[Rfam]
RNA sequence: AUCGCACACAAACCCAAAGGUCAUUGAUUUGAAAUGUGCGAUGACCUACGCUACAUGUGCGCAAAGCAAAAAAAACCUUGUCGCCUUCUAUCCGCUCCGAAUGCCAAUUGAAGUGAAUUCAAGGUCCGACAUUC
Dot-bracket structure: ..((((((..........((((((((............)))))))).........)))))).............(((((.....((((.((..((.......))..)).)))).......))))).........
Numbered sequence: 001a002u003c004g005c006a007c008a009c010a011a012a013c014c015c016a017a018a019g020g021u022c023a024u025u026g027a028u029u030u031g032a033a034a035u036g037u038g039c040g041a042u043g044a045c046c047u048a049c050g051c052u053a054c055a056u057g058u059g060c061g062c063a064a065a066g067c068a069a070a071a072a073a074a075a076c077c078u079u080g081u082c083g084c085c086u087u088c089u090a091u092c093c094g095c096u097c098c099g100a101a102u103g104c105c106a107a108u109u110g111a112a113g114u115g116a117a118u119u120c121a122a123g124g125u126c127c128g129a130c131a132u133u134c
Stems, first nucleotide, its partner, number of pairs: 003061006019046008075125005085113004090108002094104002
Small nucleolar RNA SNORA68: a 134-nucleotide sequence from Hemibagrus wyckioides.
Rfam's curators write: U68 is a member of the H/ACA class of small nucleolar RNAs (snoRNAs) which act as guides in the the modification of uridines to pseudouridines.
The family's RNA type in Rfam is H/ACA-box small nucleolar RNA.
The literature on the family includes a 1997 paper in Genes Dev by Ganot et al., "The family of box ACA small nucleolar RNAs is defined by an evolutionarily conserved secondary structure and ubiquitous sequence elements essential for RNA accumulation".
Pairs were carried over by alignment from the consensus structure, which was predicted with PFOLD.
Its family is annotated with RNA processing and nucleolus in the Gene Ontology.